[Rfam]
RNA sequence: UACAAUGUUUUUCAACUAGACGCCCAGAGUCACGGUUUGUACGGGAUGAAAUAAGCCAGUGGACCUAUACUUUUUAUUCGUAAAAUAGUACAGUAGGGUACUAGCUACUCUACUGUCGUGCUCGCGGCAGAUCUUAGAUUAAUUUUUAUUUUAAUUUCAUCUAAUGAAAUUUUAAUGAGGAGUCUGAAAAGUAUCUACACUAGAACUGUGAAUUAAUAUAAGUUAUGAUUAGAUAUUUCUUCAUGCACAUUU
Numbered sequence: 001u002a003c004a005a006u007g008u009u010u011u012u013c014a015a016c017u018a019g020a021c022g023c024c025c026a027g028a029g030u031c032a033c034g035g036u037u038u039g040u041a042c043g044g045g046a047u048g049a050a051a052u053a054a055g056c057c058a059g060u061g062g063a064c065c066u067a068u069a070c071u072u073u074u075u076a077u078u079c080g081u082a083a084a085a086u087a088g089u090a091c092a093g094u095a096g097g098g099u100a101c102u103a104g105c106u107a108c109u110c111u112a113c114u115g116u117c118g119u120g121c122u123c124g125c126g127g128c129a130g131a132u133c134u135u136a137g138a139u140u141a142a143u144u145u146u147u148a149u150u151u152u153a154a155u156u157u158c159a160u161c162u163a164a165u166g167a168a169a170u171u172u173u174a175a176u177g178a179g180g181a182g183u184c185u186g187a188a189a190a191g192u193a194u195c196u197a198c199a200c201u202a203g204a205a206c207u208g209u210g211a212a213u214u215a216a217u218a219u220a221a222g223u224u225a226u227g228a229u230u231a232g233a234u235a236u237u238u239c240u241u242c243a244u245g246c247a248c249a250u251u252u
Stems, first nucleotide, its partner, number of pairs: 018134003021130001024127002032119004039064002042061001068090003072085002076081001091115010143181007182244001186242003189238001191236006204224004208219003
RNA: Small nucleolar RNA snR11